[Rfam]
RNA sequence: GCAAUUCUCAAGCGAGCCUGUGGUAGUGAAAGUCAGGUGAAGGAAAGAUAAAGAUUGGCACUUUCGGAAUGAAUCUGAAAUAAAAUGAAGUAAUAAAUUAGGGUGGAACCGCGUCUCAACG
Numbered sequence: 001g002c003a004a005u006u007c008u009c010a011a012g013c014g015a016g017c018c019u020g021u022g023g024u025a026g027u028g029a030a031a032g033u034c035a036g037g038u039g040a041a042g043g044a045a046a047g048a049u050a051a052a053g054a055u056u057g058g059c060a061c062u063u064u065c066g067g068a069a070u071g072a073a074u075c076u077g078a079a080a081u082a083a084a085a086u087g088a089a090g091u092a093a094u095a096a097a098u099u100a101g102g103g104u105g106g107a108a109c110c111g112c113g114u115c116u117c118a119a120c121g
Stems, first nucleotide, its partner, number of pairs: 001112002005107003008103002017071001021066003025062004031056004075090002078086001
Shown here is a 121-nucleotide RNA from Streptococcus varani, a member of the family "Streptococcus sRNA SpR19".
It scores 85 bits against the family's covariance model.